[Rfam]
RNA sequence: AGAGAAAAAGCCAAACUUACUGUGAAGUAAGGACGGAAAGCCAUGGGUCUCUAGCAGAUAGCCAGGUUACCAAUC
Numbered sequence: 001a002g003a004g005a006a007a008a009a010g011c012c013a014a015a016c017u018u019a020c021u022g023u024g025a026a027g028u029a030a031g032g033a034c035g036g037a038a039a040g041c042c043a044u045g046g047g048u049c050u051c052u053a054g055c056a057g058a059u060a061g062c063c064a065g066g067u068u069a070c071c072a073a074u075c
Stems, first nucleotide, its partner, number of pairs: 004071001011036002016031006034061001039068004044064003047059003